[Rfam]
RNA sequence: AUAAACGAUAGAGGUCGCAACCAAUAAUAAGCUAAACAGAGCUAGAGCAUGCUGAGAAGUUUAGCCCAGGAGCGGUUGCCGAAAGAGAAGUUAUGCUCACAGACUUUUCUUGGUUUAGCGGGAAACACCUGUUAAACUGUCGUGGUCUUACUAUGGCCACGAUGCGCUAUUCGGAUG
Numbered sequence: 001a002u003a004a005a006c007g008a009u010a011g012a013g014g015u016c017g018c019a020a021c022c023a024a025u026a027a028u029a030a031g032c033u034a035a036a037c038a039g040a041g042c043u044a045g046a047g048c049a050u051g052c053u054g055a056g057a058a059g060u061u062u063a064g065c066c067c068a069g070g071a072g073c074g075g076u077u078g079c080c081g082a083a084a085g086a087g088a089a090g091u092u093a094u095g096c097u098c099a100c101a102g103a104c105u106u107u108u109c110u111u112g113g114u115u116u117a118g119c120g121g122g123a124a125a126c127a128c129c130u131g132u133u134a135a136a137c138u139g140u141c142g143u144g145g146u147c148u149u150a151c152u153a154u155g156g157c158c159a160c161g162a163u164g165c166g167c168u169a170u171u172c173g174g175a176u177g
Stems, first nucleotide, its partner, number of pairs: 007171005017079006025071001031065007083111010112138011140162007
Dot-bracket structure: ......(((((.....((((((..(.....(((((((.....................))))))).....)..))))))...((((((((((.........))))))))))(((((((((((.....))))))))))).(((((((.........)))))))....)))))......
Rfam assigns this 177-nucleotide RNA from Lactococcus garvieae to the family "Lysine riboswitch aptamer". Taxonomically the source falls in Lactococcus garvieae (Bacteria, Lactobacillales, Streptococcaceae, Lactococcus).